[Rfam]
The family of this 66-nucleotide sequence from Pan troglodytes is "mir-718 microRNA precursor family". The sequence is in the family's curated seed alignment. Gene Ontology terms of the family: miRNA-mediated post-transcriptional gene silencing and RISC complex.

RNA sequence: GCGGCCGCGGCGCGCAAGAUGGCGGCGGGCCCGGGCACCGCCCCUUCCGCCCCGCCGGGCGUCGCA
Dot-bracket structure: ((((((.(((((.((..((.((.(((((((....)).))))))).)).)).).)))).).))))).